About this RNA
Shown here is a 247-nucleotide sequence from Paenibacillus beijingensis, a member of the family "c-di-AMP riboswitch aptamer (ydaO/yuaA leader)". Lineage of the source: Bacteria > Bacillati > Bacillota > Bacilli > Paenibacillus. Rfam links the family to the GO terms cyclic-di-AMP binding and regulation of gene expression. A search with the family's covariance model found it, with a score of 60 bits.
RNA sequence: UAAAACAAACUGCCGAAUUCCCGUGUACAUGGAAACGGGGGAACCACUUUGGGUGAAUUGAUUUCGACGUCCCGCCAAGCAAGAAGUAAUCGUCCUCGCACCGCUUGCCAGCCAUCUCUGGUACCGCGGCCCGGGUCCUUACAACCACAAGGACGACCACGCCAGCUGCAGCAUGACGCCUGAGAAGUCAUAGGGUGCCUUCAACCGAACCCCACAGCUAACCUCGUAGGCUUUUGGAAGGAGCUUU
Numbered sequence: 001u002a003a004a005a006c007a008a009a010c011u012g013c014c015g016a017a018u019u020c021c022c023g024u025g026u027a028c029a030u031g032g033a034a035a036c037g038g039g040g041g042a043a044c045c046a047c048u049u050u051g052g053g054u055g056a057a058u059u060g061a062u063u064u065c066g067a068c069g070u071c072c073c074g075c076c077a078a079g080c081a082a083g084a085a086g087u088a089a090u091c092g093u094c095c096u097c098g099c100a101c102c103g104c105u106u107g108c109c110a111g112c113c114a115u116c117u118c119u120g121g122u123a124c125c126g127c128g129g130c131c132c133g134g135g136u137c138c139u140u141a142c143a144a145c146c147a148c149a150a151g152g153a154c155g156a157c158c159a160c161g162c163c164a165g166c167u168g169c170a171g172c173a174u175g176a177c178g179c180c181u182g183a184g185a186a187g188u189c190a191u192a193g194g195g196u197g198c199c200u201u202c203a204a205c206c207g208a209a210c211c212c213c214a215c216a217g218c219u220a221a222c223c224u225c226g227u228a229g230g231c232u233u234u235u236g237g238a239a240g241g242a243g244c245u246u247u
Stems, first nucleotide, its partner, number of pairs: 012231003018034003035227006051212003059190007193206002196203001